[Rfam]
The family of this 64-nucleotide RNA sequence from Zingiber officinale is "Plastid-clpP 5UTR RNA".
It scores 70 bits against the family's covariance model.
The family's RNA type in Rfam is cis-regulatory element.
Taxonomically the source falls in Zingiber (Eukaryota, Mesangiospermae, commelinids, Zingiberaceae).
Rfam 15.1 lists 2,105 matches to the family in 526 species.
From the family's description: Plastid clpP is a non-coding RNA (ncRNA) recognised in plastids. It was found in the prime untranslated region (5UTR) of a protease complex subunit (clpP) in plastids, suggesting a posible cis-regulatory function.

RNA sequence: AAUUUUAUUCGUAAGAACAAAGAGAAUCUAUUCUAUACCCGAUAAGUACCAAUACGUAAUGGAA
Numbered sequence: 001a002a003u004u005u006u007a008u009u010c011g012u013a014a015g016a017a018c019a020a021a022g023a024g025a026a027u028c029u030a031u032u033c034u035a036u037a038c039c040c041g042a043u044a045a046g047u048a049c050c051a052a053u054a055c056g057u058a059a060u061g062g063a064a
Stems, first nucleotide, its partner, number of pairs: 003022002006019001008017003039062002046055003